[Rfam]
RNA sequence: CUACGAUAAUGGCAAACUCGUUGAAAGGCGAGGACGCAAAGCUAUGGGUCUAAGGGUGUUCACCUAUGACUGCCAGGUUGCCGAA
Number, nucleotide and partner (000 for none) at each position: 001c000002u000003a000004c000005g000006a000007u000008a000009a000010u000011g000012g037013c036014a000015a000016a000017c032018u031019c030020g029021u028022u027023g000024a000025a000026a000027g022028g021029c020030g019031a018032g017033g000034a000035c000036g013037c012038a000039a000040a079041g078042c077043u076044a000045u075046g074047g073048g070049u069050c068051u000052a000053a000054g000055g064056g063057u062058g000059u000060u000061c000062a057063c056064c055065u000066a000067u000068g050069a049070c048071u000072g000073c047074c046075a045076g043077g042078u041079u040080g000081c000082c000083g000084a000085a000

c-di-GMP-I riboswitch aptamer: an 85-nucleotide RNA sequence from Bacillus sp. cl95. GEMM was predicted in a large-scale screen for bacterial structured RNA regulatory elements. It scores 86 bits against the family's covariance model. The base pairs follow the family's consensus structure, which is taken from published work.